[Rfam]
RNA: c-di-AMP riboswitch aptamer (ydaO/yuaA leader)
Organism: Sulfobacillus harzensis
RNA sequence: ACCAUGAGCAGGCCAAAUUGUCAUUCACUGACAACCGGGGGAACCGUUAGUGGGGUGAAUCGAAAUCUCGUAGGGCCUUUCCUCUCCUGCCCGAACCCGUCAGCUAACUCCGGAGGCACUACUUAUGAGAGGG
Numbered sequence: 001a002c003c004a005u006g007a008g009c010a011g012g013c014c015a016a017a018u019u020g021u022c023a024u025u026c027a028c029u030g031a032c033a034a035c036c037g038g039g040g041g042a043a044c045c046g047u048u049a050g051u052g053g054g055g056u057g058a059a060u061c062g063a064a065a066u067c068u069c070g071u072a073g074g075g076c077c078u079u080u081c082c083u084c085u086c087c088u089g090c091c092c093g094a095a096c097c098c099g100u101c102a103g104c105u106a107a108c109u110c111c112g113g114a115g116g117c118a119c120u121a122c123u124u125a126u127g128a129g130a131g132g133g
Stems, first nucleotide, its partner, number of pairs: 012117003018034006035113006045052002053098003061070003073092004